RNA: Ribosomal protein L10 leader
Organism: Leptotrichia sp. oral taxon 215
RNA sequence: UACAUUUCAAAAUGAUAACCAAAGACAGUAGGUGGAAAUUCCAUAAACCCUACCGAGGUAAUAGUAAAUGAAUAAUCUAUAUAAUAUAAAGAAUUCGUUAAUACAUACCUCUGGGCUUAUUGUUUUUGUUUCAGAGGUUUUUAAUAUGAGGA
Numbered sequence: 001u002a003c004a005u006u007u008c009a010a011a012a013u014g015a016u017a018a019c020c021a022a023a024g025a026c027a028g029u030a031g032g033u034g035g036a037a038a039u040u041c042c043a044u045a046a047a048c049c050c051u052a053c054c055g056a057g058g059u060a061a062u063a064g065u066a067a068a069u070g071a072a073u074a075a076u077c078u079a080u081a082u083a084a085u086a087u088a089a090a091g092a093a094u095u096c097g098u099u100a101a102u103a104c105a106u107a108c109c110u111c112u113g114g115g116c117u118u119a120u121u122g123u124u125u126u127u128g129u130u131u132c133a134g135a136g137g138u139u140u141u142u143a144a145u146a147u148g149a150g151g152a
Base pairs, nucleotide, nucleotide: 028053029052030051031050032049034042035041036040108137109136110135111134112133113132114131115130117128